[Rfam]
Source information:
This 92-nucleotide RNA belongs to the Rfam family "Rhodo-rpoB RNA". It is one of the family's seed sequences. The family's consensus secondary structure is taken from published work. The family's RNA type in Rfam is cis-regulatory element.

RNA sequence: GGAUCGGGAGGUCACCUUGGGUCGGUGGCCAUGAAUUGAUCCGAACCAGCCAUCUCUGAUGGACAGGCCGCCGUGGCCCGACGGUGUGCUUC
Dot-bracket structure: (((((....(((((((.......))))))).......)))))......................(((((((((........))))).)))).
Numbered sequence: 001g002g003a004u005c006g007g008g009a010g011g012u013c014a015c016c017u018u019g020g021g022u023c024g025g026u027g028g029c030c031a032u033g034a035a036u037u038g039a040u041c042c043g044a045a046c047c048a049g050c051c052a053u054c055u056c057u058g059a060u061g062g063a064c065a066g067g068c069c070g071c072c073g074u075g076g077c078c079c080g081a082c083g084g085u086g087u088g089c090u091u092c
Stems, first nucleotide, its partner, number of pairs: 001042005010030007065091004069086005